This 147-nucleotide RNA sequence from Vibrio eleionomae belongs to the Rfam family "FMN riboswitch aptamer (RFN element)". A search with the family's covariance model found it, with a score of 123 bits.
RNA sequence: AUUUAUUCUCAGGGCGGGGUGCAAUUCCCCACCGGUGGUAUACCUUAUAGGUGAGCCCACGAGCGCUCAAUAGUGUUCUAUUGAGGUCAAGCAGAUCUGGUGAGAAGCCAGAGCCGACGGUUAUAGUCCGGAUGAGAGAGAAUGAUA
Numbered sequence: 001a002u003u004u005a006u007u008c009u010c011a012g013g014g015c016g017g018g019g020u021g022c023a024a025u026u027c028c029c030c031a032c033c034g035g036u037g038g039u040a041u042a043c044c045u046u047a048u049a050g051g052u053g054a055g056c057c058c059a060c061g062a063g064c065g066c067u068c069a070a071u072a073g074u075g076u077u078c079u080a081u082u083g084a085g086g087u088c089a090a091g092c093a094g095a096u097c098u099g100g101u102g103a104g105a106a107g108c109c110a111g112a113g114c115c116g117a118c119g120g121u122u123a124u125a126g127u128c129c130g131g132a133u134g135a136g137a138g139a140g141a142a143u144g145a146u147a
Stems, first nucleotide, its partner, number of pairs: 003145008017029003031127002033116002035060004055114002063092002096112005118130003

The family's consensus secondary structure is taken from published work.